Small Cajal body-specific RNA 7: a 310-nucleotide RNA from Ibidorhyncha struthersii.
Rfam classes the family as a small Cajal body RNA.

[Rfam]
Nucleotides: 310
Stems, first nucleotide, its partner, number of pairs: 001309004176208008185196002188193001
Number, partner (000 for none) and nucleotide at each position: 001309u002308g003307g004306a005000a006000g007000u008000g009000a010000u011000g012000a013000a014000a015000u016000a017000g018000a019000g020000a021000u022000a023000a024000u025000u026000g027000g028000a029000u030000g031000u032000c033000u034000c035000u036000u037000u038000g039000a040000a041000u042000g043000g044000a045000a046000g047000g048000u049000g050000u051000g052000u053000g054000a055000u056000a057000a058000a059000u060000g061000g062000a063000a064000u065000u066000u067000a068000a069000a070000c071000c072000a073000a074000g075000g076000g077000a078000g079000g080000u081000g082000g083000g084000g085000g086000u087000g088000g089000g090000g091000a092000a093000u094000g095000u096000g097000u098000g099000c100000g101000u102000g103000c104000g105000c106000g107000c108000g109000u110000g111000u112000g113000u114000a115000g116000a117000a118000g119000a120000g121000g122000c123000u124000u125000c126000a127000a128000a129000c130000g131000g132000g133000g134000g135000c136000a137000c138000u139000g140000a141000u142000a143000a144000u145000g146000c147000a148000g149000u150000g151000c152000u153000g154000a155000u156000u157000c158000c159000g160000g161000a162000g163000u164000g165000c166000a167000u168000c169000u170000g171000a172000g173000g174000c175000a176208u177207g178206u179205u180204g181203u182202u183201a184000a185196g186195u187000u188193c189000u190000g191000g192000g193188g194000u195186g196185c197000c198000a199000c200000g201183u202182g203181a204180c205179a206178a207177c208176a209000c210000u211000g212000c213000c214000g215000a216000u217000g218000a219000u220000u221000a222000a223000a224000g225000c226000c227000c228000a229000a230000a231000a232000c233000a234000a235000g236000c237000c238000c239000a240000c241000c242000a243000a244000g245000a246000c247000g248000a249000g250000c251000c252000u253000a254000g255000g256000c257000a258000u259000c260000c261000u262000a263000a264000a265000u266000c267000u268000c269000u270000a271000a272000c273000a274000g275000g276000u277000u278000c279000a280000u281000u282000g283000a284000u285000g286000a287000a288000a289000g290000u291000g292000a293000u294000c295000c296000u297000g298000u299000g300000a301000u302000c303000u304000g305000a306004u307003c308002c309001a310000a